[Rfam]
RNA sequence: UUCCAUGUACCUUUGGGACUUGCCUGCUGUGGCAACCUCCCAUUCUAGCCAGUGAAGAGCAGAUUCUUGUUUAUUGGCAAAGCUGUCACCAUUUAAUUGAUAUUGGUUUCUUUUUUUCUGUGUUUU
Numbered sequence: 001u002u003c004c005a006u007g008u009a010c011c012u013u014u015g016g017g018a019c020u021u022g023c024c025u026g027c028u029g030u031g032g033c034a035a036c037c038u039c040c041c042a043u044u045c046u047a048g049c050c051a052g053u054g055a056a057g058a059g060c061a062g063a064u065u066c067u068u069g070u071u072u073a074u075u076g077g078c079a080a081a082g083c084u085g086u087c088a089c090c091a092u093u094u095a096a097u098u099g100a101u102a103u104u105g106g107u108u109u110c111u112u113u114u115u116u117u118c119u120g121u122g123u124u125u126u
Stems, first nucleotide, its partner, number of pairs: 002055002006051002015041004020035005075120003079116002083106003088101001090099002
Description:
The record is a 126-nucleotide RNA sequence from Peromyscus maniculatus, which matches "Small nucleolar RNA SNORA24" in Rfam. The organism belongs to Peromyscus maniculatus, within Eukaryota. The family's consensus secondary structure was predicted with RNAfold. ACA24 is a member of the H/ACA class of snoRNA that guide the sites of modification of uridines to pseudouridines. Its family is annotated with RNA processing and nucleolus in the Gene Ontology. The family's RNA type in Rfam is H/ACA-box small nucleolar RNA.